[Rfam]
RNA sequence: ACCCCACAAUUUUAAGCCGGCUGGAUAGUGGUUUUUCACUAUUCCAGUGUGCUCUGCGUGGGAACAUCAACUGAUUUCAUGUGUAUGAUGAUGUAUUCCUCUUUGGAUAGUCAUCAAAGGACGAUUUCGAACAAUA
Numbered sequence: 001a002c003c004c005c006a007c008a009a010u011u012u013u014a015a016g017c018c019g020g021c022u023g024g025a026u027a028g029u030g031g032u033u034u035u036u037c038a039c040u041a042u043u044c045c046a047g048u049g050u051g052c053u054c055u056g057c058g059u060g061g062g063a064a065c066a067u068c069a070a071c072u073g074a075u076u077u078c079a080u081g082u083g084u085a086u087g088a089u090g091a092u093g094u095a096u097u098c099c100u101c102u103u104u105g106g107a108u109a110g111u112c113a114u115c116a117a118a119g120g121a122c123g124a125u126u127u128c129g130a131a132c133a134a135u136a
Base pairs, nucleotide, nucleotide: 020048021047022046023045024044025043076130077129079127086116087115088114089113090112091111092110095108096107097106098105
Shown here is a 136-nucleotide RNA sequence from Bemisia tabaci, a member of the family "Small nucleolar RNA snoR639/H1".
Lineage of the source: Eukaryota > Opisthokonta > Mandibulata > Eumetabola > Bemisia.
Pairs were carried over by alignment from the consensus structure.
For this family Rfam cites "minifly, a Drosophila gene required for ribosome biogenesis" (Giordano et al., J Cell Biol, 1999).
About the family: snoR639 or snoH1 belongs to the H/ACA class of snoRNAs which are thought to guide the sites of modification of uridines to pseudouridines. snoH1 is found in an intron of the mfl gene in Drosophila.
The family has 9 seed sequences and 77 matches in Rfam 15.1.